[Rfam]
RNA: Flavo-1 RNA
Organism: Flavobacterium psychrophilum
RNA sequence: CUCUAGCCCUGAUAGCAGUGAAAAUCCUUUUUUGAGGUUUUUUCCGAAAAAAAGAUUGUAACGGAUAGCAGGAAAUAGC
Numbered sequence: 001c002u003c004u005a006g007c008c009c010u011g012a013u014a015g016c017a018g019u020g021a022a023a024a025u026c027c028u029u030u031u032u033u034g035a036g037g038u039u040u041u042u043u044c045c046g047a048a049a050a051a052a053a054g055a056u057u058g059u060a061a062c063g064g065a066u067a068g069c070a071g072g073a074a075a076u077a078g079c
Stems, first nucleotide, its partner, number of pairs: 009071003013067002018062002023057004029052002031047002034044003